Source information:
A member of the RNA family "Clostridioides difficile sRNA SQ1002" from Clostridioides difficile, 234 nucleotides long.
[Rfam]
RNA sequence: CAUUAUAAGAGUUAAAAUUAACUCAUAAAUUACAUAUUGGGUAUAAAAUACAAUGUAUGUUAGAAGUUGUUUCAGAAGGCUAUGGUUUUCUGAUUUUUUUAUGCUCAGUAGUGAUAUGCAAAAAAGACAAAGUUGACAUCAGUUAACUUUUACCUUUAUUCUACUUUCCCCAAAGUAAGAAUAAUCUAACCCCUUUGAGAUGAGCAAAAGCUCAUCUUUUUUUAUUAUCAAAAG
Numbered sequence: 001c002a003u004u005a006u007a008a009g010a011g012u013u014a015a016a017a018u019u020a021a022c023u024c025a026u027a028a029a030u031u032a033c034a035u036a037u038u039g040g041g042u043a044u045a046a047a048a049u050a051c052a053a054u055g056u057a058u059g060u061u062a063g064a065a066g067u068u069g070u071u072u073c074a075g076a077a078g079g080c081u082a083u084g085g086u087u088u089u090c091u092g093a094u095u096u097u098u099u100u101a102u103g104c105u106c107a108g109u110a111g112u113g114a115u116a117u118g119c120a121a122a123a124a125a126g127a128c129a130a131a132g133u134u135g136a137c138a139u140c141a142g143u144u145a146a147c148u149u150u151u152a153c154c155u156u157u158a159u160u161c162u163a164c165u166u167u168c169c170c171c172a173a174a175g176u177a178a179g180a181a182u183a184a185u186c187u188a189a190c191c192c193c194u195u196u197g198a199g200a201u202g203a204g205c206a207a208a209a210g211c212u213c214a215u216c217u218u219u220u221u222u223u224a225u226u227a228u229c230a231a232a233a234g
Stems, first nucleotide, its partner, number of pairs: 009024006027117001029115005037108006050070005058065001072093009121159001123157004129150009160180002162177006194232005199216007
It is annotated as a small RNA.